[Rfam]
RNA sequence: GAUCGAUCGAAGCCGAGGGGCAGGAGUGGGGGACCCACAGGUUCCACGCGGCGCCGGCCCGACGGGUCGGCGCUGCUCGGGGUGAAGCCACCCGACGGUGGCGGAGCACUUUCCGGCUCCAACCCGACAGCUCACCCCACAGGCGUGGGAAAGGACCC
Numbered sequence: 001g002a003u004c005g006a007u008c009g010a011a012g013c014c015g016a017g018g019g020g021c022a023g024g025a026g027u028g029g030g031g032g033a034c035c036c037a038c039a040g041g042u043u044c045c046a047c048g049c050g051g052c053g054c055c056g057g058c059c060c061g062a063c064g065g066g067u068c069g070g071c072g073c074u075g076c077u078c079g080g081g082g083u084g085a086a087g088c089c090a091c092c093c094g095a096c097g098g099u100g101g102c103g104g105a106g107c108a109c110u111u112u113c114c115g116g117c118u119c120c121a122a123c124c125c126g127a128c129a130g131c132u133c134a135c136c137c138c139a140c141a142g143g144c145g146u147g148g149g150a151a152a153g154g155a156c157c158c
Stems, first nucleotide, its partner, number of pairs: 007143002013024002026140006036079001080125003088101004104119004
RNA: c-di-AMP riboswitch aptamer (ydaO/yuaA leader)
Organism: Nocardioides sp. JQ2195